Shown here is a 68-nucleotide sequence from Lentibacillus halodurans, a member of the family "Bacillaceae-1 RNA".
Rfam classes the family as a small RNA.
NCBI's taxonomy places the organism under Bacteria, Bacillota, Caryophanales, Bacillaceae, Lentibacillus.

RNA sequence: GACUCCAGCGGGUCGGCUUAGAUCGGUCACGUCCUGUGACCAACGCCGACACUAGAACGUCCUGUUCG
Dot-bracket structure: ...........((((((........(((((.....)))))....))))))....((((.....)))).